Rfam assigns this 140-nucleotide RNA from Ligilactobacillus ruminis to the family "Ribosomal protein L20 leader". It scores 65 bits against the family's covariance model.

Nucleotides: 140
Stems, first nucleotide, its partner, number of pairs: 011026006028052003034047005091126009
Number, partner (000 for none) and nucleotide at each position: 001000g002000a003000a004000a005000a006000a007000a008000a009000g010000c011026a012025g013024a014023g015022g016021c017000u018000c019000c020000c021016g022015c023014u024013u025012c026011u027000c028052g029051c030050c031000u032000g033000a034047g035046g036045g037044a038043c039000a040000c041000a042000g043038g044037u045036u046035c047034c048000u049000g050030g051029g052028c053000a054000g055000a056000a057000a058000u059000a060000a061000g062000a063000a064000a065000u066000u067000a068000a069000u070000u071000u072000c073000c074000g075000a076000u077000u078000g079000a080000a081000c082000g083000g084000a085000u086000u087000u088000u089000u090000u091126a092125c093124g094123g095122g096121u097120g098119c099118u100000u101000u102000g103000c104000g105000u106000u107000u108000g109000g110000u111000u112000u113000a114000u115000g116000c117000g118099a119098g120097c121096a122095c123094c124093c125092g126091u127000u128000u129000u130000u131000u132000u133000u134000c135000u136000g137000c138000a139000u140000u
Lineage of the source: Bacteria > Lactobacillales > Lactobacillaceae > Ligilactobacillus > Ligilactobacillus ruminis. This family is a putative r-protein leader autoregulatory structure found in B. subtilis and other low-GC Gram-positive bacteria. It is located in the 5' untranslated regions of mRNAs encoding initiation factor 3 followed by ribosomal proteins L35 and L20 (infC-rpmI-rplT). A Rho-independent transcription terminator structure that is probably involved in regulation is included at the 3' end. The family's consensus secondary structure was predicted with CMfinder.